Source information: Shown here is a 62-nucleotide RNA from Callithrix jacchus, a member of the family "U7 small nuclear RNA". Rfam describes the family as follows. Animal histone pre-mRNAs are spliced by a different mechanism than nuclear pre-mRNAs and self-splicing introns. This processing involves the U7 snRNP, which contains only one RNA species: U7. The 5' end of U7 RNA is thought to base-pair to a conserved spacer element downstream of the cleavage site in histone pre-mRNA. This family contains a number of annotated U7 pseudogenes. Taxonomically the source falls in Callithrix (Eukaryota, Chordata, Haplorrhini, Callitrichinae).
RNA sequence: UAGUGUUACAGCUUUUUUAGAAUUUGCCCGGCAGGCUUUCUGGUUUUUGCUAGAAAGCCCCC
Numbered sequence: 001u002a003g004u005g006u007u008a009c010a011g012c013u014u015u016u017u018u019a020g021a022a023u024u025u026g027c028c029c030g031g032c033a034g035g036c037u038u039u040c041u042g043g044u045u046u047u048u049g050c051u052a053g054a055a056a057g058c059c060c061c062c
Stems, first nucleotide, its partner, number of pairs: 034059011
Dot-bracket structure: .................................(((((((((((....)))))))))))...